[Rfam]
RNA: U7 small nuclear RNA
RNA sequence: AAUUGUCUCUUUUAGUAUUUCUCCAGUAGGUUUCCUCAAUGAGAAAGCCUCC
Numbered sequence: 001a002a003u004u005g006u007c008u009c010u011u012u013u014a015g016u017a018u019u020u021c022u023c024c025a026g027u028a029g030g031u032u033u034c035c036u037c038a039a040u041g042a043g044a045a046a047g048c049c050u051c052c
Stems, first nucleotide, its partner, number of pairs: 029049005035043003